[Rfam]
RNA sequence: GAAAUGAGCGGUAAGUCCGCUGUAGGUGGUUCUAGGUGUUCCCUUCCGUAGGUUGGCCAUAGCCUAGACAUAACGAGCCUGCAGGGCACGCUCAUUUU
Numbered sequence: 001g002a003a004a005u006g007a008g009c010g011g012u013a014a015g016u017c018c019g020c021u022g023u024a025g026g027u028g029g030u031u032c033u034a035g036g037u038g039u040u041c042c043c044u045u046c047c048g049u050a051g052g053u054u055g056g057c058c059a060u061a062g063c064c065u066a067g068a069c070a071u072a073a074c075g076a077g078c079c080u081g082c083a084g085g086g087c088a089c090g091c092u093c094a095u096u097u098u
Stems, first nucleotide, its partner, number of pairs: 001098006008091002023081005030075001031068007042056002046052002